A member of the RNA family "small Cajal body-specific RNA 18" from Pelusios castaneus, 86 nucleotides long. scaRNAs are a specific class of small nuclear RNAs which localise to the Cajal bodies and guide the modification of RNA polymerase II transcribed spliceosomal RNAs U1, U2, U4, U5 and U12. This C/D box domain U91 (also known as U4-8) was identified by Darzacq and is predicted to guide the 2'O-ribose methylation of U4 snRNA C8. On this family, see Galardi et al., Mol Cell Biol 2002: "Purified box C/D snoRNPs are able to reproduce site-specific 2'-O-methylation of target RNA in vitro". The family's consensus secondary structure was predicted with PFOLD. Rfam links the family to the GO terms Cajal body, nucleolus and RNA processing.
RNA sequence: UGGUCUGUGAUGAUUAGCCCACUGCGCAAUCUGAGUUCUGCAGAACUAUAUGAUGAAAUUUGUGCUGAAAAAGGCAGCUGAGACCA
Numbered sequence: 001u002g003g004u005c006u007g008u009g010a011u012g013a014u015u016a017g018c019c020c021a022c023u024g025c026g027c028a029a030u031c032u033g034a035g036u037u038c039u040g041c042a043g044a045a046c047u048a049u050a051u052g053a054u055g056a057a058a059u060u061u062g063u064g065c066u067g068a069a070a071a072a073g074g075c076a077g078c079u080g081a082g083a084c085c086a
Stems, first nucleotide, its partner, number of pairs: 002085004039048002